[Rfam]
RNA sequence: AUAAAGCAUGCGCUAACGAUUGAAGCGGCAUCCUUUUUAUCCGCCAGCUGGCGGACAAAAAGAUAUAGCGGAAAGCGUGUUAAAGC
Numbered sequence: 001a002u003a004a005a006g007c008a009u010g011c012g013c014u015a016a017c018g019a020u021u022g023a024a025g026c027g028g029c030a031u032c033c034u035u036u037u038u039a040u041c042c043g044c045c046a047g048c049u050g051g052c053g054g055a056c057a058a059a060a061a062g063a064u065a066u067a068g069c070g071g072a073a074a075g076c077g078u079g080u081u082a083a084a085g086c
Base pairs, nucleotide, nucleotide: 016078017077018076020074021073025069026068030064031063032062036059037058038057040055041054042053043052044051045050

Flavo-1 RNA: an 86-nucleotide RNA sequence from Pedobacter psychrophilus.
The source organism's lineage runs through Bacteria, Bacteroidota, Sphingobacteriia, Sphingobacteriales and Pedobacter.